[Rfam]
RNA: Small nucleolar RNA SNORD19
RNA sequence: GAGGUAUGAGGAAAACAUCUGCACAGUCUUACUGUCUGUGAAGACUCGUAAGAUCCAACUCUGACCUCAGUGGGACC
Numbered sequence: 001g002a003g004g005u006a007u008g009a010g011g012a013a014a015a016c017a018u019c020u021g022c023a024c025a026g027u028c029u030u031a032c033u034g035u036c037u038g039u040g041a042a043g044a045c046u047c048g049u050a051a052g053a054u055c056c057a058a059c060u061c062u063g064a065c066c067u068c069a070g071u072g073g074g075a076c077c
Base pairs, nucleotide, nucleotide: 001068002067003066004065
Dot-bracket structure: ((((............................................................)))).........